[Rfam]
RNA sequence: UUCUGCCCGUGAUGUCCUUUCCUACCUACAUUGUUUGACUUAGAGAAUGAGAAAUAUCCAAACCUGAGGCAGAU
Numbered sequence: 001u002u003c004u005g006c007c008c009g010u011g012a013u014g015u016c017c018u019u020u021c022c023u024a025c026c027u028a029c030a031u032u033g034u035u036u037g038a039c040u041u042a043g044a045g046a047a048u049g050a051g052a053a054a055u056a057u058c059c060a061a062a063c064c065u066g067a068g069g070c071a072g073a074u
Stems, first nucleotide, its partner, number of pairs: 002073001004071004
Description
Small nucleolar RNA SNORD34: a 74-nucleotide RNA from Pogona vitticeps. Rfam describes the family as follows. snoRNA U34 is found in intron 5 of the ribosomal protein L13a gene in humans. The literature on the family includes a 2003 paper in Nucleic Acids Res by Chen et al., "The high diversity of snoRNAs in plants: identification and comparative study of 120 snoRNA genes from Oryza sativa".